S10-Clostridia ribosomal protein leader: a 106-nucleotide sequence from Streptococcus zalophi. By type it is a cis-regulatory leader. The source organism's lineage runs through Bacteria, Bacillati, Bacillota, Streptococcaceae and Streptococcus. A search with the family's covariance model found it, with a score of 36 bits.
RNA sequence: CCUUAGCUUUGAUGCAAGAGGUUGCGACACGCUUGGUUGCAUUGCCACGCAAUCACCUGUCGGUUUUCUUGUGGAGCUAGCCUAUUAUCUUAAAUAGACGAGAGGA
Numbered sequence: 001c002c003u004u005a006g007c008u009u010u011g012a013u014g015c016a017a018g019a020g021g022u023u024g025c026g027a028c029a030c031g032c033u034u035g036g037u038u039g040c041a042u043u044g045c046c047a048c049g050c051a052a053u054c055a056c057c058u059g060u061c062g063g064u065u066u067u068c069u070u071g072u073g074g075a076g077c078u079a080g081c082c083u084a085u086u087a088u089c090u091u092a093a094a095u096a097g098a099c100g101a102g103a104g105g106a
Base pairs, nucleotide, nucleotide: 014072015071016070018068019067020066021065025062026061027060028059029058081105082104083103088101089100091098